[Rfam]
RNA sequence: UCGGGCUUCACGACCUGUCCACGAUGGAAGGUCCACUAUUUCUCGCUGAUUUUCAGGAGCUAUUUGAUUAUGCGUA
Numbered sequence: 001u002c003g004g005g006c007u008u009c010a011c012g013a014c015c016u017g018u019c020c021a022c023g024a025u026g027g028a029a030g031g032u033c034c035a036c037u038a039u040u041u042c043u044c045g046c047u048g049a050u051u052u053u054c055a056g057g058a059g060c061u062a063u064u065u066g067a068u069u070a071u072g073c074g075u076a
Stems, first nucleotide, its partner, number of pairs: 012033005018028003037066002042059003046056003
Dot-bracket structure: ...........(((((.(((.....))))))))...((...(((.(((.....)))))).....))..........